[Rfam]
RNA: Glycine riboswitch aptamer
Organism: Microbacterium sp. Root61
RNA sequence: CCGCUCUGGAAAGUGAUGGGACGUCCGUCGUCCCAUCCGCCCACGGUGAAAGCCGCGCCUCCGCAGUUCUGCGGGCCGCAGCGAAGCUCUCAGGCCCAAGACAGAGGGGGA
Numbered sequence: 001c002c003g004c005u006c007u008g009g010a011a012a013g014u015g016a017u018g019g020g021a022c023g024u025c026c027g028u029c030g031u032c033c034c035a036u037c038c039g040c041c042c043a044c045g046g047u048g049a050a051a052g053c054c055g056c057g058c059c060u061c062c063g064c065a066g067u068u069c070u071g072c073g074g075g076c077c078g079c080a081g082c083g084a085a086g087c088u089c090u091c092a093g094g095c096c097c098a099a100g101a102c103a104g105a106g107g108g109g110g111a
Stems, first nucleotide, its partner, number of pairs: 001109002004106005015037009039095003043090001046089001048087001052082002